[Rfam]
RNA sequence: AGCCUCUCAGCUACACUUGAUCACACAGGCCCAUUGUGUGCUUGGCAUAUGUUCAGGGAGAGAGAGGAAGGCUUUCUUAAUGCAGGAUAGAGCUACCCCAAAUGGCCUCUCUGUUCCUAGGAGUGUGACAGGU
Numbered sequence: 001a002g003c004c005u006c007u008c009a010g011c012u013a014c015a016c017u018u019g020a021u022c023a024c025a026c027a028g029g030c031c032c033a034u035u036g037u038g039u040g041c042u043u044g045g046c047a048u049a050u051g052u053u054c055a056g057g058g059a060g061a062g063a064g065a066g067g068a069a070g071g072c073u074u075u076c077u078u079a080a081u082g083c084a085g086g087a088u089a090g091a092g093c094u095a096c097c098c099c100a101a102a103u104g105g106c107c108u109c110u111c112u113g114u115u116c117c118u119a120g121g122a123g124u125g126u127g128a129c130a131g132g133u
Stems, first nucleotide, its partner, number of pairs: 004064005011058002019043002022040005074123005080118001082116001089112003096105002
A member of the RNA family "Small nucleolar RNA SNORA64/SNORA10 family" from Carlito syrichta, 133 nucleotides long. Rfam describes the family as follows. This family belongs to the H/ACA class of small nucleolar RNAs (snoRNAs) which act as guides in the the modification of uridines to pseudouridines. This family includes the human snoRNAs U64 and ACA10 and mouse MBI-29. Rfam classes the family as an H/ACA-box small nucleolar RNA. A search with the family's covariance model found it, with a score of 89 bits. The source organism's lineage runs through Eukaryota, Metazoa, Sarcopterygii, Eutheria and Carlito. Gene Ontology terms of the family: nucleolus and RNA processing.